This 141-nucleotide RNA sequence from Clostridium sp. CAG:75 belongs to the Rfam family "Ribosomal protein L10 leader". Gene Ontology term of the family: regulation of gene expression. It scores 76 bits against the family's covariance model. Taxonomically the source falls in Clostridium (Bacteria, Bacillota, Clostridia, Eubacteriales). The family's consensus secondary structure was predicted with CMfinder. A reference for the family is Zengel and Lindahl (1994), "Diverse mechanisms for regulating ribosomal protein synthesis in Escherichia coli", Prog Nucleic Acid Res Mol Biol.

[Rfam]
RNA sequence: GAAAAGUAAAACUCACUGCCGUAGACAGUAGGUGCGGAUUUCCGCGUAAGUCUGAUUAUAGCCGCCUACCGAGGAAGAUGAAGUAUCUGAUAUGAUAAUUUUACUCCUCUCUCUACGUAGAGAGGUUUUUUUAUUAGAACU
Numbered sequence: 001g002a003a004a005a006g007u008a009a010a011a012c013u014c015a016c017u018g019c020c021g022u023a024g025a026c027a028g029u030a031g032g033u034g035c036g037g038a039u040u041u042c043c044g045c046g047u048a049a050g051u052c053u054g055a056u057u058a059u060a061g062c063c064g065c066c067u068a069c070c071g072a073g074g075a076a077g078a079u080g081a082a083g084u085a086u087c088u089g090a091u092a093u094g095a096u097a098a099u100u101u102u103a104c105u106c107c108u109c110u111c112u113c114u115a116c117g118u119a120g121a122g123a124g125g126u127u128u129u130u131u132u133a134u135u136a137g138a139a140c141u
Stems, first nucleotide, its partner, number of pairs: 028069006034045003106125007
Dot-bracket structure: ...........................(((((((((......)))..................))))))....................................(((((((......)))))))................